[Rfam]
A member of the RNA family "MIR8565 microRNA precursor family" from Amborella trichopoda, 154 nucleotides long. The base pairs follow the family's consensus structure, which was predicted with RNAalifold. The match comes from Rfam's covariance-model search (151 bits). Rfam links the family to the GO terms miRNA-mediated post-transcriptional gene silencing and RISC complex.
RNA sequence: CUCACACCCAUGUGUGUAGGAUUCCAAAAGAUCACCAUUAAAUUUGACACAGAUUUUUAGAAAUGUUAUCACAUGGGUGUGGAACUUAACUUUUCUAUAGAUCUGUGCCAAAUUUAAUGAUGAUCCUUUGGAGUCCUACACACAUGGGUGUGGG
Numbered sequence: 001c002u003c004a005c006a007c008c009c010a011u012g013u014g015u016g017u018a019g020g021a022u023u024c025c026a027a028a029a030g031a032u033c034a035c036c037a038u039u040a041a042a043u044u045u046g047a048c049a050c051a052g053a054u055u056u057u058u059a060g061a062a063a064u065g066u067u068a069u070c071a072c073a074u075g076g077g078u079g080u081g082g083a084a085c086u087u088a089a090c091u092u093u094u095c096u097a098u099a100g101a102u103c104u105g106u107g108c109c110a111a112a113u114u115u116a117a118u119g120a121u122g123a124u125c126c127u128u129u130g131g132a133g134u135c136c137u138a139c140a141c142a143c144a145u146g147g148g149u150g151u152g153g154g
Base pairs, nucleotide, nucleotide: 002153003152004151005150006149007148008147009146010145011144012143013142015140016139017138018137019136020135021134022133023132024131025130026129027128028127030125031124032123034121036119037118038117039116040115041114042113043112044111045110046109048107049106050105051104052103053102054101055100056099058097059096060095061094062093063092065090066089067088068087069082070081071080072079073078